A member of the RNA family "Small nucleolar RNA SNORA74" from Urocolius indicus, 204 nucleotides long. The base pairs follow the family's consensus structure, which was predicted with PFOLD. For this family Rfam cites "Human U19 intron-encoded snoRNA is processed from a long primary transcript that possesses little potential for protein coding" (Bortolin and Kiss, RNA, 1998).
[Rfam]
Nucleotides: 204
Stems, first nucleotide, its partner, number of pairs: 001060009011051002015046004020041001021039002025036002069138009085126007093118001095116002097112001099111004140199006147192001156185003160181007
Number, partner (000 for none) and nucleotide at each position: 001060u002059c003058c004057a005056g006055c007054g008053g009052u010000a011051g012050u013000c014000a015046g016045c017044u018043g019000c020041c021039c022038a023000u024000a025036g026035c027000u028000g029000c030000u031000c032000a033000g034000u035026g036025c037000c038022u039021g040000g041020g042000a043018c044017a045016g046015u047000g048000u049000u050012a051011u052009g053008c054007u055006g056005c057004u058003g059002g060001g061000a062000g063000a064000g065000g066000a067000a068000c069138g070137u071136g072135u073134u074133g075132c076131u077130g078000a079000g080000u081000c082000c083000u084000u085126c086125c087124u088123g089122g090121c091120a092000c093118c094000a095116u096115c097112g098000g099111u100110g101109c102108c103000g104000u105000u106000c107000u108102g109101g110100u111099g112097c113000u114000g115096g116095a117000u118093g119000a120091u121090g122089c123088c124087a125086g126085g127000u128000u129000u130077c131076g132075g133074c134073a135072g136071c137070a138069c139000u140199c141198u142197g143196c144195a145194u146000g147192c148000c149000u150000g151000a152000g153000a154000g155000u156185g157184g158183a159000g160181u161180g162179a163178c164177u165176c166175c167000u168000c169000c170000u171000c172000g173000g174000u175166g176165g177164a178163g179162u180161u181160a182000a183158u184157c185156c186000u187000a188000g189000a190000c191000u192147g193000g194145a195144u196143g197142c198141a199140g200000a201000c202000a203000a204000u